[Rfam]
RNA sequence: UGUCUCCUCCACCCUCCUCCUUUGGUGUGGAUUGAACGCCGCCUCUUCGAGGCGGCGUUUUUUUU
Numbered sequence: 001u002g003u004c005u006c007c008u009c010c011a012c013c014c015u016c017c018u019c020c021u022u023u024g025g026u027g028u029g030g031a032u033u034g035a036a037c038g039c040c041g042c043c044u045c046u047u048c049g050a051g052g053c054g055g056c057g058u059u060u061u062u063u064u065u
Base pairs, nucleotide, nucleotide: 008031009030010029011028012027013025014024036058037057038056039055040054041053042052043051
The record is a 65-nucleotide sequence from Tepidiphilus thermophilus, which matches "Betaproteobacteria toxic small RNA" in Rfam. Overexpression in amino aid rich medium attenuates growth, suggesting role in repressing amino acid intake and metabolism. Lineage of the source: Bacteria > Pseudomonadota > Hydrogenophilia > Hydrogenophilaceae > Tepidiphilus. The family's consensus secondary structure was predicted with WAR. The family has 51 seed sequences and 951 matches in Rfam 15.1. A search with the family's covariance model found it, with a score of 62 bits.